The family of this 141-nucleotide RNA from Xenopus laevis is "Small nucleolar RNA SNORA29". The base pairs follow the family's consensus structure, which was predicted with PFOLD. The family's RNA type in Rfam is H/ACA-box small nucleolar RNA. Taxonomically the source falls in Xenopus (Eukaryota, Anura, Pipoidea, Pipidae). About the family: ACA29 is a member of the H/ACA class of snoRNA that guide the sites of modification of uridines to pseudouridines.
RNA sequence: AUUCCCAUUUUAGUACCGCUUUUUUCGUUUCUCCAAAUAAGCGGCUAUGCUAAUGGGAAAGAAUAAGCUCUCUGCUAUAGUCUGAAGGGGAAUGUGAAAUGUAUGUAACUUCUUCUACAUGAAAUGGCAGAACAGAAAUGG
Numbered sequence: 001a002u003u004c005c006c007a008u009u010u011u012a013g014u015a016c017c018g019c020u021u022u023u024u025u026c027g028u029u030u031c032u033c034c035a036a037a038u039a040a041g042c043g044g045c046u047a048u049g050c051u052a053a054u055g056g057g058a059a060a061g062a063a064u065a066a067g068c069u070c071u072c073u074g075c076u077a078u079a080g081u082c083u084g085a086a087g088g089g090g091a092a093u094g095u096g097a098a099a100u101g102u103a104u105g106u107a108a109c110u111u112c113u114u115c116u117a118c119a120u121g122a123a124a125u126g127g128c129a130g131a132a133c134a135g136a137a138a139u140g141g
Stems, first nucleotide, its partner, number of pairs: 004057004016044004074128004092116001096115002